A member of the RNA family "Fluoride riboswitch aptamer (crcB RNA motif)" from Thermogutta terrifontis, 63 nucleotides long. NCBI's taxonomy places the organism under Bacteria, Pseudomonadati, Planctomycetota, Planctomycetia, Thermogutta. The match comes from Rfam's covariance-model search (55 bits). The base pairs follow the family's consensus structure, which is taken from published work. Gene Ontology terms of the family: response to fluoride and positive regulation of gene expression.
RNA sequence: AAAGUUGACGGGGAUGGAGUCCCCCGCUAAAUGCCCUAUCGGGCUGAUGACUCCUACCGCGCA
Numbered sequence: 001a002a003a004g005u006u007g008a009c010g011g012g013g014a015u016g017g018a019g020u021c022c023c024c025c026g027c028u029a030a031a032u033g034c035c036c037u038a039u040c041g042g043g044c045u046g047a048u049g050a051c052u053c054c055u056a057c058c059g060c061g062c063a
Base pairs, nucleotide, nucleotide: 010025011024012023013022016054017053018052019051020050021049033044034043035042036041